This 71-nucleotide RNA sequence from Origma solitaria belongs to the Rfam family "tRNA". Rfam describes the family as follows. Transfer RNA (tRNA) molecules are approximately 80 nucleotides in length.

RNA sequence: ACUUUCAAAGGAUAAUAGCAAUCCAAUGGUCUUAGGAACCAUUCAUCUUGGUGCAAAUCCAAGUGAAAGUA
Numbered sequence: 001a002c003u004u005u006c007a008a009a010g011g012a013u014a015a016u017a018g019c020a021a022u023c024c025a026a027u028g029g030u031c032u033u034a035g036g037a038a039c040c041a042u043u044c045a046u047c048u049u050g051g052u053g054c055a056a057a058u059c060c061a062a063g064u065g066a067a068a069g070u071a
Stems, first nucleotide, its partner, number of pairs: 001070007010024004026042005047063005